[Rfam]
RNA sequence: CUUCAUCAUGGAGAUGGCAUUCUCCCCAACCGCCGGAACUCCGGCUAAUGAUGCCUGGCCGCGU
Numbered sequence: 001c002u003u004c005a006u007c008a009u010g011g012a013g014a015u016g017g018c019a020u021u022c023u024c025c026c027c028a029a030c031c032g033c034c035g036g037a038a039c040u041c042c043g044g045c046u047a048a049u050g051a052u053g054c055c056u057g058g059c060c061g062c063g064u
Base pairs, nucleotide, nucleotide: 010025011024012023013022016055017054018053019052020051021050032045033044034043035042
RNA: Fluoride riboswitch aptamer (crcB RNA motif)
Organism: Paraburkholderia sp. DHOC27